leuA-Halobacteria RNA: a 53-nucleotide RNA. It is annotated as a cis-regulatory element. Rfam's curators put it in the seed alignment. The base pairs follow the family's consensus structure, which is taken from published work.
RNA sequence: CUCCAGCGAGGAUAGAGUAAGUCGGGGCAACCCGGCUGGCCGUGAAAUUGCCU
Numbered sequence: 001c002u003c004c005a006g007c008g009a010g011g012a013u014a015g016a017g018u019a020a021g022u023c024g025g026g027g028c029a030a031c032c033c034g035g036c037u038g039g040c041c042g043u044g045a046a047a048u049u050g051c052c053u
Base pairs, nucleotide, nucleotide: 020037021036022035023034024033025032026031